[Rfam]
RNA sequence: GUUUGUCUAAUGACGCUGCGCUUAUCGGGUCGGUGCUGGAUUGGUAAUUCAUUGAUAUUUUUGCAUUCCUCUUCGAGGGCAAUAAGGCGAAUGUCAUAACUACAAUACGUUUUAACCAUUCAGGCGGAAGUUGGCUUCCGCCUGUUUU
Numbered sequence: 001g002u003u004u005g006u007c008u009a010a011u012g013a014c015g016c017u018g019c020g021c022u023u024a025u026c027g028g029g030u031c032g033g034u035g036c037u038g039g040a041u042u043g044g045u046a047a048u049u050c051a052u053u054g055a056u057a058u059u060u061u062u063g064c065a066u067u068c069c070u071c072u073u074c075g076a077g078g079g080c081a082a083u084a085a086g087g088c089g090a091a092u093g094u095c096a097u098a099a100c101u102a103c104a105a106u107a108c109g110u111u112u113u114a115a116c117c118a119u120u121c122a123g124g125c126g127g128a129a130g131u132u133g134g135c136u137u138c139c140g141c142c143u144g145u146u147u148u
Stems, first nucleotide, its partner, number of pairs: 001108002003105004010097006019089005024056005034046004061082004068078004121144010
RNA: isrP Hfq binding RNA
Organism: Salmonella enterica